RNA sequence: GAAAUAUGAUGAUGGGGGAAGCUUGCACAUAACCUCUUGAAUCUCUCCCAAUACUCAUAUAAACUUUCUCCAUGUUGUUGCCUAAUCCAAGAAAUAUCCUUUCUGAUUGC
Dot-bracket structure: (.((((.....................................................((..............))..........................)).)).)
Numbered sequence: 001g002a003a004a005u006a007u008g009a010u011g012a013u014g015g016g017g018g019a020a021g022c023u024u025g026c027a028c029a030u031a032a033c034c035u036c037u038u039g040a041a042u043c044u045c046u047c048c049c050a051a052u053a054c055u056c057a058u059a060u061a062a063a064c065u066u067u068c069u070c071c072a073u074g075u076u077g078u079u080g081c082c083u084a085a086u087c088c089a090a091g092a093a094a095u096a097u098c099c100u101u102u103c104u105g106a107u108u109g110c
Stems, first nucleotide, its partner, number of pairs: 001110001003108002005105002060077002

Overview: A member of the RNA family "Plant small nucleolar RNA R71" from Lupinus albus, 110 nucleotides long. The source organism's lineage runs through Eukaryota, Streptophytina, Magnoliopsida, Fabaceae and Lupinus. Its family is annotated with nucleolus and RNA processing in the Gene Ontology. It is annotated as a C/D-box small nucleolar RNA.